[Rfam]
Rfam assigns this 100-nucleotide RNA from Abiotrophia defectiva to the family "THF (Tetrahydrofolate) riboswitch aptamer".
The sequence is in the family's curated seed alignment.

RNA sequence: AGCAGAGUAGAAAAUCUAGCGUAAAGUGCCAGCCGGACGGGGAGUUGCCGGCAGGACGAAGAGUUAAAUGCUCGCGGUGAGGUUUUCGCAUCCCGCUGUU
Numbered sequence: 001a002g003c004a005g006a007g008u009a010g011a012a013a014a015u016c017u018a019g020c021g022u023a024a025a026g027u028g029c030c031a032g033c034c035g036g037a038c039g040g041g042g043a044g045u046u047g048c049c050g051g052c053a054g055g056a057c058g059a060a061g062a063g064u065u066a067a068a069u070g071c072u073c074g075c076g077g078u079g080a081g082g083u084u085u086u087c088g089c090a091u092c093c094c095g096c097u098g099u100u
Stems, first nucleotide, its partner, number of pairs: 001100005010087008019078001020076003026057002029055002032052005040093003044089001061073004

The family's consensus secondary structure is taken from published work.
About the family: Tetrahydrofolate (THF) riboswitch was first reported for Ames et al. as an RNA motif in 5' untranslated (5'-UTR)regions of folate transport and biosynthesis genes in Firmicutes genomes.